[Rfam]
RNA: sraA
Organism: Klebsiella sp. RIT-PI-d
RNA sequence: AUGUGAUUCAGUAUAUGGGGAUGAUUCCCAUACAUUCAACGCUAUGUUUGAGAGAAAAAUAAAAGGGGAGAUAAAAUCCCCCCUUUUUGAUUAACU
Number, nucleotide and partner (000 for none) at each position: 001a000002u000003g000004u000005g000006a000007u000008u038009c000010a036011g035012u034013a000014u000015a000016u032017g031018g000019g029020g028021a000022u000023g000024a000025u000026u000027c000028c020029c019030a000031u017032a016033c000034a012035u011036u010037c000038a008039a000040c000041g000042c000043u000044a000045u000046g000047u000048u000049u000050g000051a000052g000053a000054g000055a000056a000057a000058a000059a000060u000061a000062a086063a085064a084065g083066g082067g081068g080069a000070g078071a077072u076073a000074a000075a000076a072077u071078c070079c000080c068081c067082c066083c065084u064085u063086u062087u000088u000089g000090a000091u000092u000093a000094a000095c000096u000